Rfam assigns this 58-nucleotide sequence from Triticum aestivum to the family "Plastid-psbA-3 3UTR RNA".
Lineage of the source: Eukaryota > Liliopsida > Triticodae > Triticeae > Triticum.
Rfam classes the family as a cis-regulatory element.
Plastid psbA-3 is a non-coding RNA (ncRNA) present in plastids. It was identified in inverted repeat sequences in the 3 prime untranslate region (3UTR) of photosystem II quinone-binding protein (psbA).
The family's consensus secondary structure was predicted with LocARNA.
A search with the family's covariance model found it, with a score of 51 bits.

RNA sequence: AAGACAGAAAUACCUAAUAUCUUGUUCUAGCAAGAUAUUGGGUAUUUCUGUCUUCAAA
Numbered sequence: 001a002a003g004a005c006a007g008a009a010a011u012a013c014c015u016a017a018u019a020u021c022u023u024g025u026u027c028u029a030g031c032a033a034g035a036u037a038u039u040g041g042g043u044a045u046u047u048c049u050g051u052c053u054u055c056a057a058a
Stems, first nucleotide, its partner, number of pairs: 001054014019036006